RNA: Purine riboswitch aptamer
RNA sequence: AUAAAAACGACAUAUAACCCUCAUAUAAAAUUGGGAAUAGGGCCCAAACGUUUCUACCUGGUGACCGUAAAUCGCCGGACUAUGAGGAAAGAACGCCCCCGG
Dot-bracket structure: ..................(((((((.....(((((.......)))))..........(((((((.......)))))))..)))))))...............
Numbered sequence: 001a002u003a004a005a006a007a008c009g010a011c012a013u014a015u016a017a018c019c020c021u022c023a024u025a026u027a028a029a030a031u032u033g034g035g036a037a038u039a040g041g042g043c044c045c046a047a048a049c050g051u052u053u054c055u056a057c058c059u060g061g062u063g064a065c066c067g068u069a070a071a072u073c074g075c076c077g078g079a080c081u082a083u084g085a086g087g088a089a090a091g092a093a094c095g096c097c098c099c100c101g102g
Stems, first nucleotide, its partner, number of pairs: 019087007031047005058078007